[Rfam]
RNA sequence: CAUGAUCCCAUGGGGUUCAUGGUGGAAGCGUUCACGUCGCCAUCCCGGUCAGGCUUUUUUUGACAAAGCCUGCGAAUUCUACC
Dot-bracket structure: ............[[[.[...((((((((((.......))).].]]]...(((((((.........)))))))....)))))))
Rfam assigns this 83-nucleotide RNA from Muraenolepis orangiensis to the family "Mammalian CPEB3 ribozyme". Rfam describes the family as follows. The mammalian CPEB3 ribozyme is a self cleaving RNA located in the second intron of the CPEB3 gene which belongs to a family of genes regulating messenger RNA polyadenylation. The organism belongs to Muraenolepis, within Eukaryota.